The record is a 75-nucleotide RNA sequence from Apium graveolens, which matches "Small nucleolar RNA R12" in Rfam. snoR12 is a C/D box small nucleolar RNA, which acts as a methylation guide for 25S ribosomal RNA in plants. snoR12 has been alternatively named snoZ44 in Arabidopsis and snoZ131 in rice. Rfam classes the family as a C/D-box small nucleolar RNA. Rfam links the family to the GO terms nucleolus and RNA processing. Lineage of the source: Eukaryota > Gunneridae > asterids > Apieae > Apium. For this family Rfam cites "The high diversity of snoRNAs in plants: identification and comparative study of 120 snoRNA genes from Oryza sativa" (Chen et al., Nucleic Acids Res, 2003).
RNA sequence: GAGAGUAUGAUGAAAGAAAUCAUUCGGAUUCCCAAUGAAUAAUCCAUGUUUACUUACCAGCUACUUCUGACUCUC
Numbered sequence: 001g002a003g004a005g006u007a008u009g010a011u012g013a014a015a016g017a018a019a020u021c022a023u024u025c026g027g028a029u030u031c032c033c034a035a036u037g038a039a040u041a042a043u044c045c046a047u048g049u050u051u052a053c054u055u056a057c058c059a060g061c062u063a064c065u066u067c068u069g070a071c072u073c074u075c
Base pairs, nucleotide, nucleotide: 001075002074003073004072005071